[Rfam]
RNA sequence: AGCCUAAACUCGAACAAACGAGCAUGGCAAAAAUCCAUCCCUGGCAUUAAGCUCCUCGUCUGAGCACCAGGGAUGGUCAUAUCUCGAAAGGGAUAUGGGUGGCCGAAAGGCUAUC
Numbered sequence: 001a002g003c004c005u006a007a008a009c010u011c012g013a014a015c016a017a018a019c020g021a022g023c024a025u026g027g028c029a030a031a032a033a034u035c036c037a038u039c040c041c042u043g044g045c046a047u048u049a050a051g052c053u054c055c056u057c058g059u060c061u062g063a064g065c066a067c068c069a070g071g072g073a074u075g076g077u078c079a080u081a082u083c084u085c086g087a088a089a090g091g092g093a094u095a096u097g098g099g100u101g102g103c104c105g106a107a108a109g110g111c112u113a114u115c
Base pairs, nucleotide, nucleotide: 002028003027004026009022010021011020012019035076036075037074038073039072040071041070042069043068044067051065052064053063054062078097079096080095081094082093083092084091085090098115099114100113101112102111103110
Shown here is a 115-nucleotide sequence, a member of the family "LOOT RNA". Pairs were carried over by alignment from the consensus structure, which is taken from published work. The sequence is in the family's curated seed alignment.